The family of this 82-nucleotide RNA from Paenibacillus sp. oral taxon 786 is "Group II catalytic intron D1-D4-1". Rfam 15.1 lists 2,508 matches to the family in 1,144 species. The sequence is in the family's curated seed alignment. The organism belongs to Paenibacillus sp. oral taxon 786, within Bacteria. Rfam describes the family as follows. Group II introns are found in rRNA, tRNA and mRNA of organelles in fungi, plants and protists, and also in mRNA in bacteria.
RNA sequence: AAUCACGGUUGAAACAAGAUUUAUCAUGAGAAGUCAGCAGACGCCAUAGUACCGCGAACAGUCGACGGUUCGAGGGAAGGGC
Dot-bracket structure: ((((..(.(...).)..))))...........(((....)))(((......((.(((((........))))).))....)))